Overview
A member of the RNA family "mir-126 microRNA precursor family" from Megalops atlanticus, 74 nucleotides long. The base pairs follow the family's consensus structure, which was predicted with RNAalifold.
RNA sequence: UCACAGCGCAUUAUUACUCACGGUACGAGUUUUAGACAGGCCUAGCGCGUACCAAAAGUAAUAAUGCACCGUGA
Dot-bracket structure: ........((((((((((...((((((.(................).))))))...))))))))))........

The organism belongs to Megalops, within Eukaryota. Rfam 15.1 lists 1,407 matches to the family in 631 species. The literature on the family includes a 2005 paper in Nucleic Acids Res by Altuvia et al., "Clustering and conservation patterns of human microRNAs".